[Rfam]
RNA sequence: GGAGUCGGCCAGGCAAUCGCUGCUCUGCUUUGCAGGGGGGAGGAAAGUCCGGGCUCCAUAGGGCAGGGUGCCAGGUAACGCCUGGGGAGCGUAAGCUCACGACUAGUGCAACAGAGAGCAAACCGCCGAUGGCUCGUAAGAGCACAGGUAAGGGUGAAAGGGUGCGGUAAGAGCGCACCGCGCGGCUGGCAACAGUUCGCGGCACGGUAAACUCCACCCGGAGCAAGGCCAAAUAGGCCCCUGCGGACGCGGCCCGCGUUUGGGGGCGGGUAGGCUGCUUGAGCCAGCGGGCGACCGCUGGCCUAGACGAAUGAUUGUCCACGACAGAACCCGGCUUAUGGCCGACUCCCACU
Numbered sequence: 001g002g003a004g005u006c007g008g009c010c011a012g013g014c015a016a017u018c019g020c021u022g023c024u025c026u027g028c029u030u031u032g033c034a035g036g037g038g039g040g041a042g043g044a045a046a047g048u049c050c051g052g053g054c055u056c057c058a059u060a061g062g063g064c065a066g067g068g069u070g071c072c073a074g075g076u077a078a079c080g081c082c083u084g085g086g087g088a089g090c091g092u093a094a095g096c097u098c099a100c101g102a103c104u105a106g107u108g109c110a111a112c113a114g115a116g117a118g119c120a121a122a123c124c125g126c127c128g129a130u131g132g133c134u135c136g137u138a139a140g141a142g143c144a145c146a147g148g149u150a151a152g153g154g155u156g157a158a159a160g161g162g163u164g165c166g167g168u169a170a171g172a173g174c175g176c177a178c179c180g181c182g183c184g185g186c187u188g189g190c191a192a193c194a195g196u197u198c199g200c201g202g203c204a205c206g207g208u209a210a211a212c213u214c215c216a217c218c219c220g221g222a223g224c225a226a227g228g229c230c231a232a233a234u235a236g237g238c239c240c241c242u243g244c245g246g247a248c249g250c251g252g253c254c255c256g257c258g259u260u261u262g263g264g265g266g267c268g269g270g271u272a273g274g275c276u277g278c279u280u281g282a283g284c285c286a287g288c289g290g291g292c293g294a295c296c297g298c299u300g301g302c303c304u305a306g307a308c309g310a311a312u313g314a315u316u317g318u319c320c321a322c323g324a325c326a327g328a329a330c331c332c333g334g335c336u337u338a339u340g341g342c343c344g345a346c347u348c349c350c351a352c353u
Stems, first nucleotide, its partner, number of pairs: 001349011012319007020040002023037006045337003049334005054223004061255004066219005071085005086100001087098004101214002106212002108208002123153002125149003130146002132143004161179006180203001181201005186195003227276004237267006246260005283302008
Notes:
This 353-nucleotide RNA from Neiella litorisoli belongs to the Rfam family "Bacterial RNase P class A". Its family is annotated with dimeric ribonuclease P complex, ribonuclease P activity and tRNA processing in the Gene Ontology. A search with the family's covariance model found it, with a score of 329 bits.